[Rfam]
RNA sequence: AAAAUAGAGCGCUAGGGUUCCGAUUGUCCGCUUCGCAGGCAUCGACAAUGACUGGUCCGAGAGCACUCAACCUUCUGGUUGGUAUCCCCGUUGAUGCCCCCGGCGGAAGGUCACACGGCGGGAUAAAAGCCCGGGAGAU
Numbered sequence: 001a002a003a004a005u006a007g008a009g010c011g012c013u014a015g016g017g018u019u020c021c022g023a024u025u026g027u028c029c030g031c032u033u034c035g036c037a038g039g040c041a042u043c044g045a046c047a048a049u050g051a052c053u054g055g056u057c058c059g060a061g062a063g064c065a066c067u068c069a070a071c072c073u074u075c076u077g078g079u080u081g082g083u084a085u086c087c088c089c090g091u092u093g094a095u096g097c098c099c100c101c102g103g104c105g106g107a108a109g110g111u112c113a114c115a116c117g118g119c120g121g122g123a124u125a126a127a128a129g130c131c132c133g134g135g136a137g138a139u
Stems, first nucleotide, its partner, number of pairs: 007068003011064002015058002020055002022052001023049006070111007114134001116137001120132003

A member of the RNA family "Guanidine-I riboswitch aptamer" from Marinospirillum alkaliphilum, 139 nucleotides long. Rfam's curators write: This family represents a conserved RNA structure found upstream of the ykkC and yxkD genes in Bacillus subtilis and related genes in other bacteria. Gene Ontology term of the family: regulation of gene expression. For this family Rfam cites "New RNA motifs suggest an expanded scope for riboswitches in bacterial genetic control" (Barrick et al., Proc Natl Acad Sci U S A, 2004). The pairing is the family consensus, mapped onto this sequence.